[Rfam]
RNA: mir-193 microRNA precursor family
Organism: Aquarana catesbeiana
RNA sequence: GUUUGGCCCUGGGUCUUUGCGGGCGAGGUGAGUACUACCUUCAACUGGCCUACAAAGUCCCAGUGU
Numbered sequence: 001g002u003u004u005g006g007c008c009c010u011g012g013g014u015c016u017u018u019g020c021g022g023g024c025g026a027g028g029u030g031a032g033u034a035c036u037a038c039c040u041u042c043a044a045c046u047g048g049c050c051u052a053c054a055a056a057g058u059c060c061c062a063g064u065g066u
Stems, first nucleotide, its partner, number of pairs: 006066002010062004015057005021051004026046002029043002